[Rfam]
RNA sequence: UACACCUAAAACAAUGAAAGCCCUGCCUCUCUUCCAUCCUUACGGCUCCUAGGCCGUGCCAGUGGGAAUCAGGAAUUUUUAAUAAUUA
Numbered sequence: 001u002a003c004a005c006c007u008a009a010a011a012c013a014a015u016g017a018a019a020g021c022c023c024u025g026c027c028u029c030u031c032u033u034c035c036a037u038c039c040u041u042a043c044g045g046c047u048c049c050u051a052g053g054c055c056g057u058g059c060c061a062g063u064g065g066g067a068a069u070c071a072g073g074a075a076u077u078u079u080u081a082a083u084a085a086u087u088a
Base pairs, nucleotide, nucleotide: 035066039062040061041058042057043056044055045054046053047052
RNA: BsrC
Organism: Cytobacillus dafuensis